[Rfam]
RNA sequence: GGCCCUGUAGCUCAGCUGUAUAGAGCAGCCGCCUCCUAAGCGGCAGGUCGCAGGUUAGAGUCCUGCCAGGGUCG
Numbered sequence: 001g002g003c004c005c006u007g008u009a010g011c012u013c014a015g016c017u018g019u020a021u022a023g024a025g026c027a028g029c030c031g032c033c034u035c036c037u038a039a040g041c042g043g044c045a046g047g048u049c050g051c052a053g054g055u056u057a058g059a060g061u062c063c064u065g066c067c068a069g070g071g072u073c074g
Stems, first nucleotide, its partner, number of pairs: 001073007010026004028044005050066005
RNA: tRNA